[Rfam]
The record is an 81-nucleotide sequence from Drosophila kikkawai, which matches "mir-306 microRNA precursor family" in Rfam. A reference for the family is Aravin et al. (2003), "The small RNA profile during Drosophila melanogaster development", Dev Cell. Pairs were carried over by alignment from the consensus structure, which was predicted with RNAalifold. It scores 60 bits against the family's covariance model.
RNA sequence: UUGAUGAUGGCUCAGGUACUUAGUGACUCUCAAAUGCCUUGAAAAGUUUUGAGAGUCUCUCUGUGCCUAGGCUGUAGGUGA
Number, nucleotide and partner (000 for none) at each position: 001u081002u080003g079004a000005u077006g075007a000008u074009g073010g072011c071012u000013c000014a068015g067016g066017u065018a064019c063020u000021u000022a060023g059024u000025g057026a056027c055028u054029c053030u052031c051032a050033a047034a000035u045036g000037c000038c000039u000040u000041g000042a000043a000044a000045a035046g000047u033048u000049u000050u032051g031052a030053g029054a028055g027056u026057c025058u000059c023060u022061c000062u000063g019064u018065g017066c016067c015068u014069a000070g000071g011072c010073u009074g008075u006076a000077g005078g000079u003080g002081a001